[Rfam]
RNA sequence: AUGGUAACUUGUUGGGAAGAAGCUAUUCAUGGCUCUUGAAAAGUAUGUAUGGAGUUUGGAGUGAGGGAUGUUGCACCCUCCUCCAAAUAACUCUAUUUAUGCUUGGUCAUUGUUUCUGCUAAAUUCUGCAGAACUUUUGGCUAAUGCAUUGCAAACCGGCAAGUCACAGAACGGCGAAGGAGACUCCAUCAAGGGUCUU
Numbered sequence: 001a002u003g004g005u006a007a008c009u010u011g012u013u014g015g016g017a018a019g020a021a022g023c024u025a026u027u028c029a030u031g032g033c034u035c036u037u038g039a040a041a042a043g044u045a046u047g048u049a050u051g052g053a054g055u056u057u058g059g060a061g062u063g064a065g066g067g068a069u070g071u072u073g074c075a076c077c078c079u080c081c082u083c084c085a086a087a088u089a090a091c092u093c094u095a096u097u098u099a100u101g102c103u104u105g106g107u108c109a110u111u112g113u114u115u116c117u118g119c120u121a122a123a124u125u126c127u128g129c130a131g132a133a134c135u136u137u138u139g140g141c142u143a144a145u146g147c148a149u150u151g152c153a154a155a156c157c158g159g160c161a162a163g164u165c166a167c168a169g170a171a172c173g174g175c176g177a178a179g180g181a182g183a184c185u186c187c188a189u190c191a192a193g194g195g196u197c198u199u
Base pairs, nucleotide, nucleotide: 058084059083060082092154096151108146109145110144182197183196184195185194186193

A member of the RNA family "Early nodulin 40" from Aquilegia coerulea, 199 nucleotides long.
The base pairs follow the family's consensus structure, which is taken from published work.
Lineage of the source: Eukaryota > Viridiplantae > Tracheophyta > Ranunculaceae > Aquilegia.
The family's RNA type in Rfam is non-coding RNA gene.
Its family is annotated with nodulation in the Gene Ontology.
On this family, see Gultyaev and Roussis, Nucleic Acids Res 2007: "Identification of conserved secondary structures and expansion segments in enod40 RNAs reveals new enod40 homologues in plants".